[Rfam]
RNA sequence: UGAGCAACACAGACAAUCGCGGCUGCAGGCGCUGAAAGGCGGCAGGUGAGGAAAGUCCGGGCUUCACAGGGCAGGAUGCCGGAUAACGUCCGGUAGAGGCGACUCUCAGGCUAGUGCAACAGAAAAGAACCGCCAGCUUUGUGCUGGUAAGGGUGAAAAGGUGAGGUAAGGGCUCACCGCGUCUUUGGUAACAAAGGCGGCGGCUGUAAACCCCAUCCGAAGCAAGACCGAACAGGAAUAAUACGGCGGCCCGUCGUGUUCCGGGUAGGUUGCUUGAACCUGGCGGCAACGUCAGGUCUAGAUAGAUGAUUGUUUGAUACAGAACCCGGCUUACAGUGUUGCUCAUUUU
Numbered sequence: 001u002g003a004g005c006a007a008c009a010c011a012g013a014c015a016a017u018c019g020c021g022g023c024u025g026c027a028g029g030c031g032c033u034g035a036a037a038g039g040c041g042g043c044a045g046g047u048g049a050g051g052a053a054a055g056u057c058c059g060g061g062c063u064u065c066a067c068a069g070g071g072c073a074g075g076a077u078g079c080c081g082g083a084u085a086a087c088g089u090c091c092g093g094u095a096g097a098g099g100c101g102a103c104u105c106u107c108a109g110g111c112u113a114g115u116g117c118a119a120c121a122g123a124a125a126a127g128a129a130c131c132g133c134c135a136g137c138u139u140u141g142u143g144c145u146g147g148u149a150a151g152g153g154u155g156a157a158a159a160g161g162u163g164a165g166g167u168a169a170g171g172g173c174u175c176a177c178c179g180c181g182u183c184u185u186u187g188g189u190a191a192c193a194a195a196g197g198c199g200g201c202g203g204c205u206g207u208a209a210a211c212c213c214c215a216u217c218c219g220a221a222g223c224a225a226g227a228c229c230g231a232a233c234a235g236g237a238a239u240a241a242u243a244c245g246g247c248g249g250c251c252c253g254u255c256g257u258g259u260u261c262c263g264g265g266u267a268g269g270u271u272g273c274u275u276g277a278a279c280c281u282g283g284c285g286g287c288a289a290c291g292u293c294a295g296g297u298c299u300a301g302a303u304a305g306a307u308g309a310u311u312g313u314u315u316g317a318u319a320c321a322g323a324a325c326c327c328g329g330c331u332u333a334c335a336g337u338g339u340u341g342c343u344c345a346u347u348u349u
Stems, first nucleotide, its partner, number of pairs: 001345010012314007020048002023045004028040001053332003057329005062222004069252004074218005079093005094108001095106004109213002114211002116207003130152002132148006160178006179201001180199008226271004235262006244256004278297008

The family of this 349-nucleotide RNA sequence from bacterium 1xD8-6 is "Bacterial RNase P class A". The match comes from Rfam's covariance-model search (312 bits). The family's consensus secondary structure is taken from published work.